[Rfam]
RNA: Small nucleolar RNA snR37
Organism: Saccharomyces mikatae
RNA sequence: AACAUCAGUAGUGGUUAAUACUAUCUUUAGAUAAUAUUAAUUUCAUUAUACCAUAGAAACCUAAAGAUUGAAUUAUUUUUGUUCUUCAUGUUAUGGGUACGAAUGAUGAGGGGCUUGCUCUUUUGAAUCCGUAUCACAUAAUAAGUUAAUACUGGAACGAGAAUAAUUUAAAUCAUUUCAUCAUAACCCAUAGCUGAAUGAAUUUUGACUACUCCUAAACAAAGUAGCUACAUUUUUCAUUUCGUUUCCGGUUUCUUAGAUCAAAUAUUAUUCUGAAGGAGUUCUCUAAUCAAAAGUUAGGGAAAGGUUCGCGUUUUUAGAGGAUUGUGUAAAGCAAUUUGUGAGUUUAAAAUCUUAGGCGACUCUUCUUCAUGAUAAGACAGUU
Numbered sequence: 001a002a003c004a005u006c007a008g009u010a011g012u013g014g015u016u017a018a019u020a021c022u023a024u025c026u027u028u029a030g031a032u033a034a035u036a037u038u039a040a041u042u043u044c045a046u047u048a049u050a051c052c053a054u055a056g057a058a059a060c061c062u063a064a065a066g067a068u069u070g071a072a073u074u075a076u077u078u079u080u081g082u083u084c085u086u087c088a089u090g091u092u093a094u095g096g097g098u099a100c101g102a103a104u105g106a107u108g109a110g111g112g113g114c115u116u117g118c119u120c121u122u123u124u125g126a127a128u129c130c131g132u133a134u135c136a137c138a139u140a141a142u143a144a145g146u147u148a149a150u151a152c153u154g155g156a157a158c159g160a161g162a163a164u165a166a167u168u169u170a171a172a173u174c175a176u177u178u179c180a181u182c183a184u185a186a187c188c189c190a191u192a193g194c195u196g197a198a199u200g201a202a203u204u205u206u207g208a209c210u211a212c213u214c215c216u217a218a219a220c221a222a223a224g225u226a227g228c229u230a231c232a233u234u235u236u237u238c239a240u241u242u243c244g245u246u247u248c249c250g251g252u253u254u255c256u257u258a259g260a261u262c263a264a265a266u267a268u269u270a271u272u273c274u275g276a277a278g279g280a281g282u283u284c285u286c287u288a289a290u291c292a293a294a295a296g297u298u299a300g301g302g303a304a305a306g307g308u309u310c311g312c313g314u315u316u317u318u319a320g321a322g323g324a325u326u327g328u329g330u331a332a333a334g335c336a337a338u339u340u341g342u343g344a345g346u347u348u349a350a351a352a353u354c355u356u357a358g359g360c361g362a363c364u365c366u367u368c369u370u371c372a373u374g375a376u377a378a379g380a381c382a383g384u385u
Stems, first nucleotide, its partner, number of pairs: 008049006014041007022033004055256007066174004070169016089143007096135006103128002108123006144153003196242007206232002209227005268378005274372008282304009306364003310361003314357001316351006322340007